RNA sequence: GGUGAGCGAUGAUGCCGGAGAUUGCUGCCAGGCGCAGGUAACUUCGGCGGAGUAAGUCCGACAAUCGGGCGGUUGAGACAA
Numbered sequence: 001g002g003u004g005a006g007c008g009a010u011g012a013u014g015c016c017g018g019a020g021a022u023u024g025c026u027g028c029c030a031g032g033c034g035c036a037g038g039u040a041a042c043u044u045c046g047g048c049g050g051a052g053u054a055a056g057u058c059c060g061a062c063a064a065u066c067g068g069g070c071g072g073u074u075g076a077g078a079c080a081a
Base pairs, nucleotide, nucleotide: 014048015047016046018045019044020043025037026036027035028034056079057078058077062075063074064073065072066071

Rfam assigns this 81-nucleotide RNA sequence from Butyricicoccus porcorum to the family "S10-Clostridia ribosomal protein leader". On this family, see Eckert and Weinberg, BMC Microbiol 2020: "Discovery of 20 novel ribosomal leader candidates in bacteria and archaea". Rfam classes the family as a cis-regulatory leader.